A member of the RNA family "Small nucleolar RNA SNORD10" from Albula goreensis, 140 nucleotides long. A reference for the family is Huttenhofer et al. (2001), "RNomics: an experimental approach that identifies 201 candidates for novel, small, non-messenger RNAs in mouse", EMBO J.
RNA sequence: GUUUUAUGAUGAUCCCCCAUGCGUGUCAACUGAUCCCAGAAUCCCCUGCUGCUGCUUUCUCCCUGCUGGCGUUCUGUUGGUGGGUGUGUAUAGGGUAGCUGGGCUCUGGGGCCAUGAUCAGACCUUAAAGGCUGAAGACC
Numbered sequence: 001g002u003u004u005u006a007u008g009a010u011g012a013u014c015c016c017c018c019a020u021g022c023g024u025g026u027c028a029a030c031u032g033a034u035c036c037c038a039g040a041a042u043c044c045c046c047u048g049c050u051g052c053u054g055c056u057u058u059c060u061c062c063c064u065g066c067u068g069g070c071g072u073u074c075u076g077u078u079g080g081u082g083g084g085u086g087u088g089u090a091u092a093g094g095g096u097a098g099c100u101g102g103g104c105u106c107u108g109g110g111g112c113c114a115u116g117a118u119c120a121g122a123c124c125u126u127a128a129a130g131g132c133u134g135a136a137g138a139c140c
Stems, first nucleotide, its partner, number of pairs: 001139003044103003048099005